[Rfam]
RNA sequence: AGCCCAAUAGGAGUCUUUCUUAACCUUUGCUAUGUAAGGGUCUUUGGUGUUUUUAAGUGAUUAUUUCUUCCCCAUGCU
Numbered sequence: 001a002g003c004c005c006a007a008u009a010g011g012a013g014u015c016u017u018u019c020u021u022a023a024c025c026u027u028u029g030c031u032a033u034g035u036a037a038g039g040g041u042c043u044u045u046g047g048u049g050u051u052u053u054u055a056a057g058u059g060a061u062u063a064u065u066u067c068u069u070c071c072c073c074a075u076g077c078u
Stems, first nucleotide, its partner, number of pairs: 010070003016056001017047002023041008
Stem loopII regulatory element in POLB: a 78-nucleotide RNA from Marmota monax. It is annotated as a cis-regulatory element.